A member of the RNA family "TPP riboswitch aptamer (THI element)" from Melissococcus plutonius, 99 nucleotides long.

RNA sequence: AUGAUGUACUAGGGGAGUCUUUUGACUGAGAUAUUCUACGGAAUGGACCCUUUGAACCUGUGAGUUGAGACUCGCGUAGGGAAGUCGUCUGAUGAGAAA
Number, nucleotide and partner (000 for none) at each position: 001a000002u000003g000004a000005u000006g000007u000008a085009c084010u083011a051012g050013g049014g048015g000016a000017g026018u025019c024020u000021u000022u000023u000024g019025a018026c017027u000028g000029a000030g000031a000032u000033a044034u043035u042036c041037u000038a000039c000040g000041g036042a035043a034044u033045g000046g000047a000048c014049c013050c012051u011052u000053u000054g000055a000056a000057c080058c079059u078060g077061u074062g073063a072064g071065u000066u000067g000068a000069g000070a000071c064072u063073c062074g061075c000076g000077u060078a059079g058080g057081g000082a000083a010084g009085u008086c000087g000088u000089c000090u000091g000092a000093u000094g000095a000096g000097a000098a000099a000
It scores 56 bits against the family's covariance model. From the family's description: Vitamin B(1) in its active form thiamin pyrophosphate (TPP) is an essential coenzyme that is synthesised by coupling of pyrimidine and thiazole moieties in bacteria.